[Rfam]
Nucleotides: 134
Stems, first nucleotide, its partner, number of pairs: 003061004017047009075123003079119001089113005095107002
Number, partner (000 for none) and nucleotide at each position: 001000c002000u003061c004060c005059a006058c007000a008000g009000c010000u011000a012000c013000u014000g015000g016000u017047c018046u019045g020044u021043g022042a023041c024040u025039g026000u027000u028000c029000a030000g031000a032000a033000u034000u035000g036000u037000a038000g039025c040024a041023g042022u043021u044020g045019c046018a047017g048000u049000a050000u051000u052000c053000c054000c055000u056000c057000u058006g059005u060004g061003g062000a063000a064000a065000a066000g067000a068000a069000a070000c071000u072000g073000u074000u075123a076122c077121a078000c079119a080000g081000c082000a083000c084000u085000a086000u087000g088000c089113u090112u091111c092110u093109u094000c095107u096106c097000a098000g099000a100000u101000g102000u103000u104000c105000u106096g107095a108000a109093a110092a111091g112090g113089g114000c115000u116000u117000c118000c119079u120000a121077u122076g123075u124000a125000a126000c127000a128000g129000a130000c131000a132000a133000u134000g
This 134-nucleotide sequence from Elachura formosa belongs to the Rfam family "Small nucleolar RNA SNORA41". The organism belongs to Elachura, within Eukaryota. The literature on the family includes a 2001 paper in EMBO J by Huttenhofer et al., "RNomics: an experimental approach that identifies 201 candidates for novel, small, non-messenger RNAs in mouse". Gene Ontology terms of the family: nucleolus and RNA processing. Rfam classes the family as an H/ACA-box small nucleolar RNA. Rfam 15.1 lists 676 matches to the family in 522 species. A search with the family's covariance model found it, with a score of 100 bits. The base pairs follow the family's consensus structure, which was predicted with PFOLD.